This 107-nucleotide RNA sequence from Pseudolysobacter antarcticus belongs to the Rfam family "SAM riboswitch aptamer (S box leader)". The match comes from Rfam's covariance-model search (92 bits). Lineage of the source: Bacteria > Pseudomonadati > Pseudomonadota > Gammaproteobacteria > Pseudolysobacter. Rfam's curators write: The SAM riboswitch is found upstream of a number of genes which code for proteins involved in methionine or cysteine biosynthesis in Gram-positive bacteria.
[Rfam]
RNA sequence: AUCUCAUCCAGACCAGCAGAGGGACAGGCCCGACGAAGCUGGGGCAACCGCCACUAAUAUGGCUGGUGCCAAAUCCUGCGAGGCUUUAUUGCCCCGAAAGAUGAGAG
Dot-bracket structure: .(((((((....(((((...(((.[[[[)))......)))))((((.((((((......)))).))))))...(]]]]((.(((......))).))..)))))))).
Numbered sequence: 001a002u003c004u005c006a007u008c009c010a011g012a013c014c015a016g017c018a019g020a021g022g023g024a025c026a027g028g029c030c031c032g033a034c035g036a037a038g039c040u041g042g043g044g045c046a047a048c049c050g051c052c053a054c055u056a057a058u059a060u061g062g063c064u065g066g067u068g069c070c071a072a073a074u075c076c077u078g079c080g081a082g083g084c085u086u087u088a089u090u091g092c093c094c095c096g097a098a099a100g101a102u103g104a105g106a107g
Stems, first nucleotide, its partner, number of pairs: 002106007013042005021031003025078004043070004048066002050063004074099001079096002082093003